[Rfam]
RNA sequence: AGAAAAAGAAAACUCUAUUAAGCUUAACUCUAGUUUAAUAUUAUAAAAAGAUAUAGAAGGUAUAGAAUAGGUAGAAGCUUUAGCGCUAGUAAAAUACUACUAUCUUUAUUAUUUUUUUACUUAUUUAAUAAAGUAGAGCUAGACCUUACUACCUAACUUCUAGUAUUAAGAUCUUAUAUAGACUAAUCUAGAUUAAAAAUAUUAUUAGGUAGAAAGUUUAGCUAAGGUAGUAGAUCUAUUAAAUUAUAAUAUAGAUAUCUUAAAAGGAAUUUAUAAAGAAUAGAAAUCUCUAAUAGAGUAAAAGAAUAAAAGUCUUCUUAAUUUUAAUUUUUAGUAUAAAUAUAAACUAUAAAAGUAUAGCCUAUUAAUCCUUUAGUCCUUUAAAAUUUAAAGCUAGAGGUACUAGAAAAGUUAUUAUAGAAAUAACUAGCUUAUAGUAGCUAAGUAUUUAUAGUAAUAUUACUUUUUAAUCUUUUAAUAUUUACUCUUUCUAUUAUACUAAAGUAGAAUUUAGUAAAUAUUAGAUUAUUUACCUACUAAUAGAGAAUAUAAGCUAGAUUUAGACUAUUAUAAAAUAGAUUAGUUUUACUCU
Numbered sequence: 001a002g003a004a005a006a007a008g009a010a011a012a013c014u015c016u017a018u019u020a021a022g023c024u025u026a027a028c029u030c031u032a033g034u035u036u037a038a039u040a041u042u043a044u045a046a047a048a049a050g051a052u053a054u055a056g057a058a059g060g061u062a063u064a065g066a067a068u069a070g071g072u073a074g075a076a077g078c079u080u081u082a083g084c085g086c087u088a089g090u091a092a093a094a095u096a097c098u099a100c101u102a103u104c105u106u107u108a109u110u111a112u113u114u115u116u117u118u119a120c121u122u123a124u125u126u127a128a129u130a131a132a133g134u135a136g137a138g139c140u141a142g143a144c145c146u147u148a149c150u151a152c153c154u155a156a157c158u159u160c161u162a163g164u165a166u167u168a169a170g171a172u173c174u175u176a177u178a179u180a181g182a183c184u185a186a187u188c189u190a191g192a193u194u195a196a197a198a199a200u201a202u203u204a205u206u207a208g209g210u211a212g213a214a215a216g217u218u219u220a221g222c223u224a225a226g227g228u229a230g231u232a233g234a235u236c237u238a239u240u241a242a243a244u245u246a247u248a249a250u251a252u253a254g255a256u257a258u259c260u261u262a263a264a265a266g267g268a269a270u271u272u273a274u275a276a277a278g279a280a281u282a283g284a285a286a287u288c289u290c291u292a293a294u295a296g297a298g299u300a301a302a303a304g305a306a307u308a309a310a311a312g313u314c315u316u317c318u319u320a321a322u323u324u325u326a327a328u329u330u331u332u333a334g335u336a337u338a339a340a341u342a343u344a345a346a347c348u349a350u351a352a353a354a355g356u357a358u359a360g361c362c363u364a365u366u367a368a369u370c371c372u373u374u375a376g377u378c379c380u381u382u383a384a385a386a387u388u389u390a391a392a393g394c395u396a397g398a399g400g401u402a403c404u405a406g407a408a409a410a411g412u413u414a415u416u417a418u419a420g421a422a423a424u425a426a427c428u429a430g431c432u433u434a435u436a437g438u439a440g441c442u443a444a445g446u447a448u449u450u451a452u453a454g455u456a457a458u459a460u461u462a463c464u465u466u467u468u469a470a471u472c473u474u475u476u477a478a479u480a481u482u483u484a485c486u487c488u489u490u491c492u493a494u495u496a497u498a499c500u501a502a503a504g505u506a507g508a509a510u511u512u513a514g515u516a517a518a519u520a521u522u523a524g525a526u527u528a529u530u531u532a533c534c535u536a537c538u539a540a541u542a543g544a545g546a547a548u549a550u551a552a553g554c555u556a557g558a559u560u561u562a563g564a565c566u567a568u569u570a571u572a573a574a575a576u577a578g579a580u581u582a583g584u585u586u587u588a589c590u591c592u
Base pairs, nucleotide, nucleotide: 002592004590006587007586014421015420016419017418019417020416021413022412023411024410025409027217028216029215034209035208036207037206038205039204040203044119045118046117047116048115049114050113051112052111053109054108055107056106057105059103070101071100072099073098074097077084078083124197125196126195127194128193134190135189136188137187142153170184172182173181174180221231222230223229234256235255236254237253238252239251259360260359266316267315269313270312271297272296274292275291277289278288279287298307299306322346323345324344327341328340329339330338348357349356350355371399372398373397374396375395376394379393380392381391382390430471432469434468436464437463438462439461440460445455446454482557485553486552488546489545490544491543492542495520496519498515499514500513501512502511503510522536523535524534526532563581564580566578567576568575569574
Description
Rfam assigns this 592-nucleotide part of an RNA from Pyrenochaeta sp. MPI-SDFR-AT-0127 to the family "Eukaryotic large subunit ribosomal RNA". A search with the family's covariance model found it, with a score of 1978 bits.